[Rfam]
RNA: Small nucleolar RNA SNORD83
RNA sequence: GGCAUUUAAUUUUUUGUUUCAAAAAGCCUGGGGUGGCCGCAAUUCUGAUCUAUAUAUAUCAUCCAUGACUGAUGCCU
Numbered sequence: 001g002g003c004a005u006u007u008a009a010u011u012u013u014u015u016g017u018u019u020c021a022a023a024a025a026g027c028c029u030g031g032g033g034u035g036g037c038c039g040c041a042a043u044u045c046u047g048a049u050c051u052a053u054a055u056a057u058a059u060c061a062u063c064c065a066u067g068a069c070u071g072a073u074g075c076c077u
Base pairs, nucleotide, nucleotide: 001076002075003074004073030040032038033037